[Rfam]
RNA sequence: GCUUCUGUAGUUUAGCGGUAUGAUAUCAGGUAUUAACACCUGAAGGCAUGGGUUCAAAUCCCAUUAGAAGCU
Numbered sequence: 001g002c003u004u005c006u007g008u009a010g011u012u013u014a015g016c017g018g019u020a021u022g023a024u025a026u027c028a029g030g031u032a033u034u035a036a037c038a039c040c041u042g043a044a045g046g047c048a049u050g051g052g053u054u055c056a057a058a059u060c061c062c063a064u065u066a067g068a069a070g071c072u
Stems, first nucleotide, its partner, number of pairs: 001071007010024003026043005048064005

tRNA: a 72-nucleotide RNA sequence from Monosporascus sp. 5C6A. The family's RNA type in Rfam is transfer RNA. Lineage of the source: Eukaryota > Fungi > leotiomyceta > sordariomyceta > Monosporascus. Transfer RNA (tRNA) molecules are approximately 80 nucleotides in length. Their secondary structure includes four short double-helical elements and three loops (D, anti-codon, and T loops). The family's consensus secondary structure is taken from published work.